[Rfam]
Shown here is a 52-nucleotide RNA sequence from Starkeya nomas, a member of the family "ffh sRNA". On this family, see Meyer et al., BMC Genomics 2009: "Identification of candidate structured RNAs in the marine organism 'Candidatus Pelagibacter ubique'". A search with the family's covariance model found it, with a score of 62 bits.
RNA sequence: GAGCCCGGAGGUCAACGCCCGACAGCGCGAUGCGCCCUCGGGCGCCAAACGG
Numbered sequence: 001g002a003g004c005c006c007g008g009a010g011g012u013c014a015a016c017g018c019c020c021g022a023c024a025g026c027g028c029g030a031u032g033c034g035c036c037c038u039c040g041g042g043c044g045c046c047a048a049a050c051g052g
Stems, first nucleotide, its partner, number of pairs: 016044007025035004